mir-153 microRNA precursor family: a 74-nucleotide RNA sequence from Argiope bruennichi.
The family's consensus secondary structure was predicted with RNAalifold.
Rfam 15.1 lists 1,565 matches to the family in 711 species.
Its family is annotated with RISC complex and miRNA-mediated post-transcriptional gene silencing in the Gene Ontology.
A reference for the family is Chen et al. (2005), "The developmental miRNA profiles of zebrafish as determined by small RNA cloning", Genes Dev.
It scores 60 bits against the family's covariance model.

Nucleotides: 074
Stems, first nucleotide, its partner, number of pairs: 002073006009066013025051007
Number, partner (000 for none) and nucleotide at each position: 001000g002073c003072u004071g005070c006069c007068c008000c009066u010065c011064a012063u013062u014061u015060u016059u017058g018057u019056g020055a021054u022000u023000g024000u025051u026050g027049c028048a029047a030046u031045u032000u033000u034000g035000u036000u037000g038000c039000c040000a041000a042000a043000a044000u045031a046030a047029u048028u049027g050026c051025a052000u053000a054021g055020u056019c057018a058017c059016a060015a061014a062013a063012g064011u065010g066009a067000u068007g069006g070005g071004u072003g073002g074000c